[Rfam]
RNA sequence: CUUGUGGACUGUUAUAACAAAUGGAAGUAGAUUUUAUAUCAUGAUGUGAUAUAAAAACAAAACCAGACAGGGUGAAGCAAGAA
Numbered sequence: 001c002u003u004g005u006g007g008a009c010u011g012u013u014a015u016a017a018c019a020a021a022u023g024g025a026a027g028u029a030g031a032u033u034u035u036a037u038a039u040c041a042u043g044a045u046g047u048g049a050u051a052u053a054a055a056a057a058c059a060a061a062a063c064c065a066g067a068c069a070g071g072g073u074g075a076a077g078c079a080a081g082a083a
Base pairs, nucleotide, nucleotide: 001081002080003079004078005077009070010069011068012067013066022065023064024063030058032056033055034054035053036052037051038050039049040048041047
Description
The family of this 83-nucleotide sequence is "RAGATH-18 RNA". It is annotated as a small RNA.